Rfam assigns this 80-nucleotide sequence from Geotrypetes seraphini to the family "mir-31 microRNA precursor family". The family is grouped with related families in Rfam's "mir-31 microRNA precursor family". It scores 72 bits against the family's covariance model. Lineage of the source: Eukaryota > Eumetazoa > Dipnotetrapodomorpha > Gymnophiona > Geotrypetes.
[Rfam]
RNA sequence: AGCUGGAGAGGAGGCAAGAUGUUGGCAUAGCUGUUGUGCUAAGAACCUGCUAUGCCAAUGUAUUGCCAUCUUUCUUGUCU
Numbered sequence: 001a002g003c004u005g006g007a008g009a010g011g012a013g014g015c016a017a018g019a020u021g022u023u024g025g026c027a028u029a030g031c032u033g034u035u036g037u038g039c040u041a042a043g044a045a046c047c048u049g050c051u052a053u054g055c056c057a058a059u060g061u062a063u064u065g066c067c068a069u070c071u072u073u074c075u076u077g078u079c080u
Base pairs, nucleotide, nucleotide: 005075006074007073008072009071010070011069013067014066015065016064017063019061020060021059023057024056025055026054027053028052029051030050031049